[Rfam]
RNA: mir-9193 microRNA precursor family
RNA sequence: UCUGGGCGGGGAGCUCUCUCAGCCUGGAUUGCGAGAGGGUGCAAGCCAGGCUGAGGGACACCACCAGUGCACG
Numbered sequence: 001u002c003u004g005g006g007c008g009g010g011g012a013g014c015u016c017u018c019u020c021a022g023c024c025u026g027g028a029u030u031g032c033g034a035g036a037g038g039g040u041g042c043a044a045g046c047c048a049g050g051c052u053g054a055g056g057g058a059c060a061c062c063a064c065c066a067g068u069g070c071a072c073g
Stems, first nucleotide, its partner, number of pairs: 003071002006068001008065002011062001015058010026047002029044005